mir-2060 microRNA precursor family: a 94-nucleotide sequence from Branchiostoma belcheri. The base pairs follow the family's consensus structure, which was predicted with RNAalifold.

[Rfam]
RNA sequence: GUUAACAUGUAUGUGGAUAGUGUUCAGCAAUAAGGACAGGUGUGUUAACAUGUGUGAGGAUGGUGUUCAGUACCAAGGACAGGUGUGUUUACAU
Numbered sequence: 001g002u003u004a005a006c007a008u009g010u011a012u013g014u015g016g017a018u019a020g021u022g023u024u025c026a027g028c029a030a031u032a033a034g035g036a037c038a039g040g041u042g043u044g045u046u047a048a049c050a051u052g053u054g055u056g057a058g059g060a061u062g063g064u065g066u067u068c069a070g071u072a073c074c075a076a077g078g079a080c081a082g083g084u085g086u087g088u089u090u091a092c093a094u
Base pairs, nucleotide, nucleotide: 005084006083008081009080010079018075020073021072022071023070024069026067027066028065029064031062032061034055036053037052038051040049041048